[Rfam]
RNA sequence: UUGUGUGCCUCCAAACUGCCCGAUGCACAGGCUGCCUACGAGUCGGCCAAUACGCUGCAGGCUGCCGCCAUGGCCGGUGUCAAUUUCAUGCUUCAUACCG
Numbered sequence: 001u002u003g004u005g006u007g008c009c010u011c012c013a014a015a016c017u018g019c020c021c022g023a024u025g026c027a028c029a030g031g032c033u034g035c036c037u038a039c040g041a042g043u044c045g046g047c048c049a050a051u052a053c054g055c056u057g058c059a060g061g062c063u064g065c066c067g068c069c070a071u072g073g074c075c076g077g078u079g080u081c082a083a084u085u086u087c088a089u090g091c092u093u094c095a096u097a098c099c100g
Stems, first nucleotide, its partner, number of pairs: 003012001025032001035060001077098001079096002
Dot-bracket structure: ..(........)............(......)..(........................)................(.((..............)).)..
Description:
Pyrrolysine insertion sequence mttB: a 100-nucleotide RNA from Granulosicoccus antarcticus. Lineage of the source: Bacteria > Pseudomonadota > Gammaproteobacteria > Granulosicoccaceae > Granulosicoccus antarcticus.